[Rfam]
RNA sequence: GGAUGUGAGGGCGAUCUGGUUGCGACAUCUGUCACCCCAUUGAUCGCCAGGGUUGAUUCGGCUGAUCUGGCUGGCUAGGCGGGUGUCCCCUUCCUCCCUCACCGCUCCAUGUGCGUCCCUCCCGAAGCUGCGCGCUCGGUCGAAGAGGACGACCAUCCCCGAUAGAGGAGGACCGGUCUUCGGUCAAGGGUAUACGAGUAGCUGCGCUCCCCUGCUAGAACCUCCAAACAAGCUCUCAAGGUCCAAUAAACCACCAGAAAACCGGAAGUGGCGCUGUAGCUCAAGUGGUAGAGCCCUUGCCUUGAGCU
Numbered sequence: 001g002g003a004u005g006u007g008a009g010g011g012c013g014a015u016c017u018g019g020u021u022g023c024g025a026c027a028u029c030u031g032u033c034a035c036c037c038c039a040u041u042g043a044u045c046g047c048c049a050g051g052g053u054u055g056a057u058u059c060g061g062c063u064g065a066u067c068u069g070g071c072u073g074g075c076u077a078g079g080c081g082g083g084u085g086u087c088c089c090c091u092u093c094c095u096c097c098c099u100c101a102c103c104g105c106u107c108c109a110u111g112u113g114c115g116u117c118c119c120u121c122c123c124g125a126a127g128c129u130g131c132g133c134g135c136u137c138g139g140u141c142g143a144a145g146a147g148g149a150c151g152a153c154c155a156u157c158c159c160c161g162a163u164a165g166a167g168g169a170g171g172a173c174c175g176g177u178c179u180u181c182g183g184u185c186a187a188g189g190g191u192a193u194a195c196g197a198g199u200a201g202c203u204g205c206g207c208u209c210c211c212c213u214g215c216u217a218g219a220a221c222c223u224c225c226a227a228a229c230a231a232g233c234u235c236u237c238a239a240g241g242u243c244c245a246a247u248a249a250a251c252c253a254c255c256a257g258a259a260a261a262c263c264g265g266a267a268g269u270g271g272c273g274c275u276g277u278a279g280c281u282c283a284a285g286u287g288g289u290a291g292a293g294c295c296c297u298u299g300c301c302u303u304g305a306g307c308u
Stems, first nucleotide, its partner, number of pairs: 001108003005102007013093002018090002024087010035074002037070003042067004046062003116171002118168004122139004127135002140162003147158003201294003207291002210288002213285001222279002225276001231275002
Dot-bracket structure: (((.(((((((.((...((....((((((((((.(((((..(((((((...........))).)))))))..))...)))))))))).)).))..)))))))...))).......((((((((((.((.....))))))(((....(((......))).)))..)))).)).............................(((...((.((.(........((.(.....((.........................................))).)).....).)).)))))..............

Rfam assigns this 308-nucleotide RNA from Dipodomys ordii to the family "7SK RNA". From the family's description: 7SK was discovered as an abundant small nuclear RNA in the mid-70s but a possible function has only recently been suggested. Two independent studies have found that 7SK RNA binds the CDK9/cyclin T complex (known as elongation factor P-TEFb). P-TEFb activates transcription by phosphorylating the C-terminal domain of RNA polymerase II. This process is negatively regulated by the 7SK RNP. The secondary structure of 7SK RNA shown here was proposed by Wasserman and Steitz on the basis of chemical modification and enzymatic cleavage experiments. This family contains a number of annotated pseudogenes and 7SK derived repeats. For this family Rfam cites "Transcription: surprising role for an elusive small nuclear RNA" (Blencowe, Curr Biol, 2002). Pairs were carried over by alignment from the consensus structure, which is taken from published work. Clan: 7SK clan.